The record is a 146-nucleotide RNA from Piaya cayana, which matches "Small nucleolar RNA U109" in Rfam. On this family, see Gu et al., Nucleic Acids Res 2005: "A novel experimental approach for systematic identification of box H/ACA snoRNAs from eukaryotes". Rfam classes the family as an H/ACA-box small nucleolar RNA.

[Rfam]
Nucleotides: 146
Base pairs, nucleotide, nucleotide: 003072004071005070006069007068008067027054029052030051031050032049034047084139085138086137087136096126097125100122101120102119103118104117105116106115107114
Number, partner (000 for none) and nucleotide at each position: 001000c002000u003072g004071c005070a006069u007068g008067u009000u010000a011000a012000a013000a014000a015000a016000a017000a018000a019000a020000g021000u022000a023000u024000a025000a026000u027054u028000c029052u030051g031050c032049u033000c034047c035000u036000c037000a038000u039000c040000u041000c042000c043000g044000u045000g046000a047034g048000a049032a050031g051030c052029a053000u054027g055000a056000a057000u058000a059000c060000g061000c062000g063000u064000a065000u066000a067008a068007c069006a070005u071004g072003c073000u074000a075000g076000a077000g078000a079000a080000a081000c082000a083000a084139g085138g086137a087136g088000u089000u090000u091000u092000c093000a094000g095000g096126g097125c098000u099000g100122c101120c102119a103118g104117u105116c106115u107114u108000g109000a110000a111000g112000u113000a114107a115106a116105g117104a118103c119102u120101g121000a122100g123000u124000g125097g126096u127000a128000g129000u130000a131000u132000a133000g134000g135000u136087c137086u138085c139084c140000u141000a142000c143000a144000u145000c146000u